[Rfam]
RNA: Small nucleolar RNA SNORA47
RNA sequence: AGGAGGAUUUGAGAAAGUUAAGCAGCUAUUUUUUGUACUGCAUUAACUGGUUGUAACCUCCUAGAAAAAAACCACAAGUGCUAAAGUGCUCUUAGUUUUCUGUAUAAAAGAAGUCAUUGCAAUACUUGUGUACAUUUU
Numbered sequence: 001a002g003g004a005g006g007a008u009u010u011g012a013g014a015a016a017g018u019u020a021a022g023c024a025g026c027u028a029u030u031u032u033u034u035g036u037a038c039u040g041c042a043u044u045a046a047c048u049g050g051u052u053g054u055a056a057c058c059u060c061c062u063a064g065a066a067a068a069a070a071a072c073c074a075c076a077a078g079u080g081c082u083a084a085a086g087u088g089c090u091c092u093u094a095g096u097u098u099u100c101u102g103u104a105u106a107a108a109a110g111a112a113g114u115c116a117u118u119g120c121a122a123u124a125c126u127u128g129u130g131u132a133c134a135u136u137u138u
Stems, first nucleotide, its partner, number of pairs: 002061005016048004020043001022041004079130003084126001086120003094114001096112003101108001